The family of this 68-nucleotide sequence from Oceanobacillus profundus is "Bacillaceae-1 RNA". The family's RNA type in Rfam is small RNA. A search with the family's covariance model found it, with a score of 62 bits.
RNA sequence: GAUAGUAGAGCUUCUACUAAGACCACCCACGUCCUGUGGGAAACGUAGAAGUCAGCACAUCCUGUGCA
Dot-bracket structure: ..........(((((((........(((((.....)))))....)))))))...((((.....)))).